[Rfam]
RNA sequence: AUCAACGACCUGUGUCGCGCUGUCCCGGCCACUCUACGGGGUGUGUUGGUCGACGGCGCGGCAGUUCGUCCGAAUUAUGGAGCCAUCAAAUUUUUAUGAUGUAAAUCUUCCGGUCGACAGGUCGCAGAGAGAGUUGGCCGCCUUCCAAAGCCUGAAUUCACCUCACGGUUCGAGCUCGGUGGAGGAGACGUGCCUGGGCGACUGAUUCCUGAUCCUUUCACUGAUGGCCGUCGGCUCAUGAAGUUGAGGAAAAACCCAGUCCAGCCUACAUAC
Numbered sequence: 001a002u003c004a005a006c007g008a009c010c011u012g013u014g015u016c017g018c019g020c021u022g023u024c025c026c027g028g029c030c031a032c033u034c035u036a037c038g039g040g041g042u043g044u045g046u047u048g049g050u051c052g053a054c055g056g057c058g059c060g061g062c063a064g065u066u067c068g069u070c071c072g073a074a075u076u077a078u079g080g081a082g083c084c085a086u087c088a089a090a091u092u093u094u095u096a097u098g099a100u101g102u103a104a105a106u107c108u109u110c111c112g113g114u115c116g117a118c119a120g121g122u123c124g125c126a127g128a129g130a131g132a133g134u135u136g137g138c139c140g141c142c143u144u145c146c147a148a149a150g151c152c153u154g155a156a157u158u159c160a161c162c163u164c165a166c167g168g169u170u171c172g173a174g175c176u177c178g179g180u181g182g183a184g185g186a187g188a189c190g191u192g193c194c195u196g197g198g199c200g201a202c203u204g205a206u207u208c209c210u211g212a213u214c215c216u217u218u219c220a221c222u223g224a225u226g227g228c229c230g231u232c233g234g235c236u237c238a239u240g241a242a243g244u245u246g247a248g249g250a251a252a253a254a255c256c257c258a259g260u261c262c263a264g265c266c267u268a269c270a271u272a273c
Stems, first nucleotide, its partner, number of pairs: 006124008014062006021055004025049005030043002032040002071116003075112001078104001080102001082100001084098001136194003150180003154177002157174003161168002197266003200261005213250005220244003226236004